Rfam assigns this 126-nucleotide sequence from Pan paniscus to the family "Small nucleolar RNA SNORA72". The family has 29 seed sequences and 1,541 matches in Rfam 15.1. Its family is annotated with RNA processing and nucleolus in the Gene Ontology.
[Rfam]
RNA sequence: AUGUCAAAAUUGAUUUUGUAAUAGUCAGGACAGGAUAGGCUAAACAGUCGCUAUAUUAAGACCAUGUACGUGUCCCUAGACCUAGUUCUUUCCCUACGUCUGUUUUUAUAAAUGCUGGUGAUAAAC
Numbered sequence: 001a002u003g004u005c006a007a008a009a010u011u012g013a014u015u016u017u018g019u020a021a022u023a024g025u026c027a028g029g030a031c032a033g034g035a036u037a038g039g040c041u042a043a044a045c046a047g048u049c050g051c052u053a054u055a056u057u058a059a060g061a062c063c064a065u066g067u068a069c070g071u072g073u074c075c076c077u078a079g080a081c082c083u084a085g086u087u088c089u090u091u092c093c094c095u096a097c098g099u100c101u102g103u104u105u106u107u108a109u110a111a112a113u114g115c116u117g118g119u120g121a122u123a124a125a126c
Stems, first nucleotide, its partner, number of pairs: 005038001007036001010028006061119004066115002077102005083096003
Dot-bracket structure: ....(.(..((((((.......)))))).......).)......................((((.((.........(((((.(((........))).)))))...........)))))).......

A search with the family's covariance model found it, with a score of 86 bits. About the family: U72 is a member of the H/ACA class of snoRNAs. The snoRNA gene is located in intron 4 of the ribosomal L30 protein gene in human, mouse and chicken. The organism belongs to Pan, within Eukaryota. The family's RNA type in Rfam is H/ACA-box small nucleolar RNA.